[Rfam]
RNA sequence: UCUUCAGUAGGGUCUUAACUGAUCCUAUAUAGCGAAUGAUGAAUAUGGGAUAUGAUUUCUAUGAUUAUUUUCCGCUUGUUGUUCGGGACUCGCAACUCCUUAACAGCAAAUAUCUGAC
Numbered sequence: 001u002c003u004u005c006a007g008u009a010g011g012g013u014c015u016u017a018a019c020u021g022a023u024c025c026u027a028u029a030u031a032g033c034g035a036a037u038g039a040u041g042a043a044u045a046u047g048g049g050a051u052a053u054g055a056u057u058u059c060u061a062u063g064a065u066u067a068u069u070u071u072c073c074g075c076u077u078g079u080u081g082u083u084c085g086g087g088a089c090u091c092g093c094a095a096c097u098c099c100u101u102a103a104c105a106g107c108a109a110a111u112a113u114c115u116g117a118c
Base pairs, nucleotide, nucleotide: 007028008027009026010025011024012023013022014021056074061069062067078107079106080105081104082103083102085100086099
The family of this 118-nucleotide RNA sequence from Rhynchophorus ferrugineus is "U8 small nucleolar RNA".
It scores 44 bits against the family's covariance model.
A reference for the family is Hokii et al. (2010), "A small nucleolar RNA functions in rRNA processing in Caenorhabditis elegans", Nucleic Acids Res.
The base pairs follow the family's consensus structure, which is taken from published work.
NCBI's taxonomy places the organism under Eukaryota, Mandibulata, Pancrustacea, Curculionidae, Rhynchophorus.